[Rfam]
RNA sequence: AGCAGCACGGGAGCGACCCGUUGGCUGGCAGACAAUCCAGUCCCAGCACACGGCAAGCGUGAUGGGGUUGGCUUUGUGCUUAUCCCCGUCUUCCAAUAACGGGAAAGACUUAAUGCAUCGCACCGAAAUACAUAAUGCCUCGUCAACGUUAUGGAACGGCAACUGCAUCGCUCGGGGAGAAUGCUGUUCUCCUCGCGGUUCCGUCGCCCCA
Numbered sequence: 001a002g003c004a005g006c007a008c009g010g011g012a013g014c015g016a017c018c019c020g021u022u023g024g025c026u027g028g029c030a031g032a033c034a035a036u037c038c039a040g041u042c043c044c045a046g047c048a049c050a051c052g053g054c055a056a057g058c059g060u061g062a063u064g065g066g067g068u069u070g071g072c073u074u075u076g077u078g079c080u081u082a083u084c085c086c087c088g089u090c091u092u093c094c095a096a097u098a099a100c101g102g103g104a105a106a107g108a109c110u111u112a113a114u115g116c117a118u119c120g121c122a123c124c125g126a127a128a129u130a131c132a133u134a135a136u137g138c139c140u141c142g143u144c145a146a147c148g149u150u151a152u153g154g155a156a157c158g159g160c161a162a163c164u165g166c167a168u169c170g171c172u173c174g175g176g177g178a179g180a181a182u183g184c185u186g187u188u189c190u191c192c193u194c195g196c197g198g199u200u201c202c203g204u205c206g207c208c209c210c211a
Stems, first nucleotide, its partner, number of pairs: 003027004007021005028079003032075001034073001038070008047061002156204004162199005174194008
Description:
This 211-nucleotide RNA sequence from Synechococcus sp. CC9605 belongs to the Rfam family "Cyano-2 RNA". Lineage of the source: Bacteria > Bacillati > Cyanophyceae > Synechococcaceae > Synechococcus. It is one of the family's seed sequences.